[Rfam]
RNA sequence: AUAUAAGUAAAAUUGACUUUUUAGAUUCAUUCAUUUAAUGAUGUACAUAGUCCAUAUUAUAAACAACAUACAUCAUCAAAUGAAUGAAUCUAAAAGGUCAAUUUUGCUUAUAU
Numbered sequence: 001a002u003a004u005a006a007g008u009a010a011a012a013u014u015g016a017c018u019u020u021u022u023a024g025a026u027u028c029a030u031u032c033a034u035u036u037a038a039u040g041a042u043g044u045a046c047a048u049a050g051u052c053c054a055u056a057u058u059a060u061a062a063a064c065a066a067c068a069u070a071c072a073u074c075a076u077c078a079a080a081u082g083a084a085u086g087a088a089u090c091u092a093a094a095a096g097g098u099c100a101a102u103u104u105u106g107c108u109u110a111u112a113u
Base pairs, nucleotide, nucleotide: 002112003111004110005109006108007107009105010104011103012102014100015099016098017097018096019095020094021093022092023091024090026088027087028086029085030084031083032082033081034080035079036078038076039075040074041073042072043071048066050064051063

This 113-nucleotide RNA sequence from Medicago truncatula belongs to the Rfam family "MIR2593 microRNA precursor family".
It scores 99 bits against the family's covariance model.
Rfam links the family to the GO terms miRNA-mediated post-transcriptional gene silencing and RISC complex.
The family's consensus secondary structure was predicted with RNAalifold.
The family has 7 seed sequences and 1,262 matches in Rfam 15.1.